[Rfam]
RNA: RNase MRP
Organism: Drosophila virilis
RNA sequence: UGAGUUUUCCUUGCUUGUCUCUCGGGGUCACAAACGAGCUCCUAGUAGCUCUCAUUUAUCACCCUGGGUAAAGUCCCCGGGCCAAGGAUAGAAAGUAUCAAGGCGUAAAAAAACAGUUGGUGCGACGAUCCCGCCGUCGUUUACAAUUUCGCCUAUAUUUCGCGGUAUUUCGCCUUGCGUACUCCAAUGAAGAGAGACCCCUUAUUAAGGGUCUCGAAUUGAUGCGCUCGGUUGACUGCGGAAAUGUGCCAGAGAACAUGAGAUAUGGACGAGUAGGGGGGCGUGUCACAGCGCCCGCCUACACGGAAUGGGGCUUACGUAGGGAAAUUC
Numbered sequence: 001u002g003a004g005u006u007u008u009c010c011u012u013g014c015u016u017g018u019c020u021c022u023c024g025g026g027g028u029c030a031c032a033a034a035c036g037a038g039c040u041c042c043u044a045g046u047a048g049c050u051c052u053c054a055u056u057u058a059u060c061a062c063c064c065u066g067g068g069u070a071a072a073g074u075c076c077c078c079g080g081g082c083c084a085a086g087g088a089u090a091g092a093a094a095g096u097a098u099c100a101a102g103g104c105g106u107a108a109a110a111a112a113a114c115a116g117u118u119g120g121u122g123c124g125a126c127g128a129u130c131c132c133g134c135c136g137u138c139g140u141u142u143a144c145a146a147u148u149u150c151g152c153c154u155a156u157a158u159u160u161c162g163c164g165g166u167a168u169u170u171c172g173c174c175u176u177g178c179g180u181a182c183u184c185c186a187a188u189g190a191a192g193a194g195a196g197a198c199c200c201c202u203u204a205u206u207a208a209g210g211g212u213c214u215c216g217a218a219u220u221g222a223u224g225c226g227c228u229c230g231g232u233u234g235a236c237u238g239c240g241g242a243a244a245u246g247u248g249c250c251a252g253a254g255a256a257c258a259u260g261a262g263a264u265a266u267g268g269a270c271g272a273g274u275a276g277g278g279g280g281g282c283g284u285g286u287c288a289c290a291g292c293g294c295c296c297g298c299c300u301a302c303a304c305g306g307a308a309u310g311g312g313g314c315u316u317a318c319g320u321a322g323g324g325a326a327a328u329u330c
Stems, first nucleotide, its partner, number of pairs: 002330010014273006022067007036051005071316003075313004087099004147167001149165004169243003172239002176235001181232003185221004200210004275300003279296006